[Rfam]
RNA sequence: UCUUCAUUUCACGUACUCUCUCAUCGGUCAGAGCUGCGGGAUAGUGCGUGAAAUGAGGAGA
Number, nucleotide and partner (000 for none) at each position: 001u059002c058003u057004u056005c055006a054007u053008u000009u000010c050011a000012c048013g047014u046015a045016c044017u043018c000019u041020c040021u039022c038023a000024u000025c000026g000027g000028u000029c000030a000031g000032a000033g000034c000035u000036g000037c000038g022039g021040g020041a019042u000043a017044g016045u015046g014047c013048g012049u000050g010051a000052a000053a007054u006055g005056a004057g003058g002059a001060g000061a000
Shown here is a 61-nucleotide RNA from Pristionchus pacificus, a member of the family "mir-8364 microRNA precursor family". The organism belongs to Pristionchus, within Eukaryota. Rfam links the family to the GO terms miRNA-mediated post-transcriptional gene silencing and RISC complex. The base pairs follow the family's consensus structure, which was predicted with RNAalifold.